Shown here is a 277-nucleotide sequence from Nannospalax galili, a member of the family "Mason-Pfizer monkey virus packaging signal". Rfam 15.1 lists 2,921 matches to the family in 53 species. The base pairs follow the family's consensus structure, which was predicted with PFOLD.

RNA sequence: UGGCACCCAACAUGGCGGCUGGAUACUGGGGGCACAUCGUGAGGGAGGACGGAAAAAGGAAGGAGUGCACUCGCUAAAUCUCAAGCAAUUUGUCGCGGGAGCCUGCCGCGACUGGACUGAACCGAAGGUAAGUUGUGCCGUCCGAUCAUGGGGCAAGGAUUAAGCCAGCAUCAGAUUUAUGUUACGCAGUUGAGGGAGGCUCUCAAGACAAGAGGAGUAAAGGUUAAGACUGUGGAUUUAUUUCAUUUCUUUGAUUUUGUAAAGGGCAUUUGUCCCU
Numbered sequence: 001u002g003g004c005a006c007c008c009a010a011c012a013u014g015g016c017g018g019c020u021g022g023a024u025a026c027u028g029g030g031g032g033c034a035c036a037u038c039g040u041g042a043g044g045g046a047g048g049a050c051g052g053a054a055a056a057a058g059g060a061a062g063g064a065g066u067g068c069a070c071u072c073g074c075u076a077a078a079u080c081u082c083a084a085g086c087a088a089u090u091u092g093u094c095g096c097g098g099g100a101g102c103c104u105g106c107c108g109c110g111a112c113u114g115g116a117c118u119g120a121a122c123c124g125a126a127g128g129u130a131a132g133u134u135g136u137g138c139c140g141u142c143c144g145a146u147c148a149u150g151g152g153g154c155a156a157g158g159a160u161u162a163a164g165c166c167a168g169c170a171u172c173a174g175a176u177u178u179a180u181g182u183u184a185c186g187c188a189g190u191u192g193a194g195g196g197a198g199g200c201u202c203u204c205a206a207g208a209c210a211a212g213a214g215g216a217g218u219a220a221a222g223g224u225u226a227a228g229a230c231u232g233u234g235g236a237u238u239u240a241u242u243u244c245a246u247u248u249c250u251u252u253g254a255u256u257u258u259g260u261a262a263a264g265g266g267c268a269u270u271u272g273u274c275c276c277u
Base pairs, nucleotide, nucleotide: 006032007031008030012027013025014024037049038048040046078129079128080127081125082124089116094110095109096108097107098106136155137154138153141152142151143150144149162203164200165199166198212252213251214250215249216248217247221239222238223237224236225235262277264275265274266273267272